RNA sequence: CCGCGUUCUCAGGGCGGGGUGAAAUUCCCCACCGGCGGUAAUGCCCUUCCAGGCGAGCCCGCGAGCGCCACCCGCUGUGGGUGGGUCUAGCAGAUUGUGGUGCGAUUCCACAGCCGACGGUGAUAGUCCGGAUGAAAGAGAACUUUG
Numbered sequence: 001c002c003g004c005g006u007u008c009u010c011a012g013g014g015c016g017g018g019g020u021g022a023a024a025u026u027c028c029c030c031a032c033c034g035g036c037g038g039u040a041a042u043g044c045c046c047u048u049c050c051a052g053g054c055g056a057g058c059c060c061g062c063g064a065g066c067g068c069c070a071c072c073c074g075c076u077g078u079g080g081g082u083g084g085g086u087c088u089a090g091c092a093g094a095u096u097g098u099g100g101u102g103c104g105a106u107u108c109c110a111c112a113g114c115c116g117a118c119g120g121u122g123a124u125a126g127u128c129c130g131g132a133u134g135a136a137a138g139a140g141a142a143c144u145u146u147g
Stems, first nucleotide, its partner, number of pairs: 003145001005143006017029003031127002033116002035062004057114002065091002096112005118130003
Background
The record is a 147-nucleotide RNA sequence from Corynebacterium canis, which matches "FMN riboswitch aptamer (RFN element)" in Rfam. Taxonomically the source falls in Corynebacterium (Bacteria, Actinomycetes, Mycobacteriales, Corynebacteriaceae).